[Rfam]
Record summary
A member of the RNA family "Bacterial RNase P class A" from Dinoroseobacter shibae, 384 nucleotides long. By type it is a ribozyme.
RNA sequence: GCGGGGGGCUGGAUGGCCGCUUGGGCCGAUGUUUCGGUUCGAGAGGAAAGUCCGGACUCCACGAAGAGACGGUGCCGGGUAACGCCCGGGCGGAGUGAUCCGACGGAAAGCGCCACAGAGAAAAGACCGCCUGCCACAGGGCGGGUCAGGGUGAAACGGUGGGGUAAGAGCCCACCGCGGGGCUGGUAACAGCCCCGGCACGGCAAGCCCCACCGGGAGCAAUGCCAAAUAGGGACCUCGUCGCGUCGCAAGGCGCGGGGCCGCUUCAGCCCAGAGGUCCGGGUUGGCAGCUAGAGCGGCCGGGCAAUCGGUCGCCCAGAGGAAUGGUCAUCCACGGGGGUCCGCCCCCUGGACAGAAUCCGGCUUACAGGCCCCUCCGCGCAU
Numbered sequence: 001g002c003g004g005g006g007g008g009c010u011g012g013a014u015g016g017c018c019g020c021u022u023g024g025g026c027c028g029a030u031g032u033u034u035c036g037g038u039u040c041g042a043g044a045g046g047a048a049a050g051u052c053c054g055g056a057c058u059c060c061a062c063g064a065a066g067a068g069a070c071g072g073u074g075c076c077g078g079g080u081a082a083c084g085c086c087c088g089g090g091c092g093g094a095g096u097g098a099u100c101c102g103a104c105g106g107a108a109a110g111c112g113c114c115a116c117a118g119a120g121a122a123a124a125g126a127c128c129g130c131c132u133g134c135c136a137c138a139g140g141g142c143g144g145g146u147c148a149g150g151g152u153g154a155a156a157c158g159g160u161g162g163g164g165u166a167a168g169a170g171c172c173c174a175c176c177g178c179g180g181g182g183c184u185g186g187u188a189a190c191a192g193c194c195c196c197g198g199c200a201c202g203g204c205a206a207g208c209c210c211c212a213c214c215g216g217g218a219g220c221a222a223u224g225c226c227a228a229a230u231a232g233g234g235a236c237c238u239c240g241u242c243g244c245g246u247c248g249c250a251a252g253g254c255g256c257g258g259g260g261c262c263g264c265u266u267c268a269g270c271c272c273a274g275a276g277g278u279c280c281g282g283g284u285u286g287g288c289a290g291c292u293a294g295a296g297c298g299g300c301c302g303g304g305c306a307a308u309c310g311g312u313c314g315c316c317c318a319g320a321g322g323a324a325u326g327g328u329c330a331u332c333c334a335c336g337g338g339g340g341u342c343c344g345c346c347c348c349c350u351g352g353a354c355a356g357a358a359u360c361c362g363g364c365u366u367a368c369a370g371g372c373c374c375c376u377c378c379g380c381g382c383a384u
Stems, first nucleotide, its partner, number of pairs: 001380004005375006011368001012332007020043009048366003052363005057219004066266003070215005075089005090104001091102004105210002110208002112204003127150002129146007158176006177199001178197008223289004233280006258272004296315008